[Rfam]
RNA sequence: AAAAUUAGUUGCCAUCAGCGAGGUAUAGAGUUCCUACGUUAUUAUAUAAAAUGUGUAGGAACUUCAUACCGUGCUCUUGGACUGCUAUG
Numbered sequence: 001a002a003a004a005u006u007a008g009u010u011g012c013c014a015u016c017a018g019c020g021a022g023g024u025a026u027a028g029a030g031u032u033c034c035u036a037c038g039u040u041a042u043u044a045u046a047u048a049a050a051a052u053g054u055g056u057a058g059g060a061a062c063u064u065c066a067u068a069c070c071g072u073g074c075u076c077u078u079g080g081a082c083u084g085c086u087a088u089g
Stems, first nucleotide, its partner, number of pairs: 012080003017075004022070005028064010
Shown here is an 89-nucleotide RNA sequence from Clunio marinus, a member of the family "mir-276 microRNA precursor family". The family has 42 seed sequences and 200 matches in Rfam 15.1. Lineage of the source: Eukaryota > Ecdysozoa > Neoptera > Eumetabola > Clunio. The match comes from Rfam's covariance-model search (90 bits).